The record is a 33-nucleotide RNA sequence from Anas platyrhynchos, which matches "L31-Firmicutes ribosomal protein leader" in Rfam. The organism belongs to Anas platyrhynchos, within Eukaryota. The literature on the family includes a 2020 paper in BMC Microbiol by Eckert and Weinberg, "Discovery of 20 novel ribosomal leader candidates in bacteria and archaea". The family's consensus secondary structure is taken from published work.
RNA sequence: CUCUGCCUGCAGCCCCAGGCAGGGCGAAAGGAG
Numbered sequence: 001c002u003c004u005g006c007c008u009g010c011a012g013c014c015c016c017a018g019g020c021a022g023g024g025c026g027a028a029a030g031g032a033g
Base pairs, nucleotide, nucleotide: 001024002023003022004021005020006019007018008017
Dot-bracket structure: ((((((((........)))))))).........